Source information:
Small nucleolar RNA SNORA3/SNORA45 family: a 112-nucleotide RNA from Camelus dromedarius. It is annotated as an H/ACA-box small nucleolar RNA. NCBI's taxonomy places the organism under Eukaryota, Deuterostomia, Sarcopterygii, Boreoeutheria, Camelus.
[Rfam]
RNA sequence: CCUGAGACUAAAGUCACAUCCUGACAGCUCUUGUCCUGGUGUGCUAGAGUCCUCGGAGAGAAUCUGCUGGUCUUGAUUCACUGGCAAGGAAGUGCCCAGAUCAGAAACUUGC
Numbered sequence: 001c002c003u004g005a006g007a008c009u010a011a012a013g014u015c016a017c018a019u020c021c022u023g024a025c026a027g028c029u030c031u032u033g034u035c036c037u038g039g040u041g042u043g044c045u046a047g048a049g050u051c052c053u054c055g056g057a058g059a060g061a062a063u064c065u066g067c068u069g070g071u072c073u074u075g076a077u078u079c080a081c082u083g084g085c086a087a088g089g090a091a092g093u094g095c096c097c098a099g100a101u102c103a104g105a106a107a108c109u110u111g112c
Base pairs, nucleotide, nucleotide: 002056003055004054005053006052007050008049009048012045013044015043016042017041018040019039020038023035024034025033026032067104068103069102070101071100072099073098075096079094080093081092082091
Notes:
The match comes from Rfam's covariance-model search (96 bits). About the family: The members of this family belong to the H/ACA class of snoRNAs which are thought to guide the sites of modification of uridines to pseudouridines. This family includes mouse snoMBI-28 and human homologues ACA3 (SNORA3) and ACA3-2 (SNORA45). Both ACA3 and ACA3-2 share the same host gene.